The family of this 118-nucleotide sequence from Digitaria exilis is "Small nucleolar RNA Z278". From the family's description: snoZ278 is a C/D box small nucleolar RNA. Its methylation guide targets have not been reported. The family's RNA type in Rfam is C/D-box small nucleolar RNA.
[Rfam]
RNA sequence: GCCACUGAUGAAAUCGCCCAAUGUUUGGACGCUGCAAUCGGUUCCAGGUUCCUGCCUGUCAGGAAGAACCUACCUGGAGCCGCUGCACUCGCAUGACAGUAUCGGGCGUAUCUGAGGU
Numbered sequence: 001g002c003c004a005c006u007g008a009u010g011a012a013a014u015c016g017c018c019c020a021a022u023g024u025u026u027g028g029a030c031g032c033u034g035c036a037a038u039c040g041g042u043u044c045c046a047g048g049u050u051c052c053u054g055c056c057u058g059u060c061a062g063g064a065a066g067a068a069c070c071u072a073c074c075u076g077g078a079g080c081c082g083c084u085g086c087a088c089u090c091g092c093a094u095g096a097c098a099g100u101a102u103c104g105g106g107c108g109u110a111u112c113u114g115a116g117g118u
Base pairs, nucleotide, nucleotide: 001118002117003116050064051063052062053061054060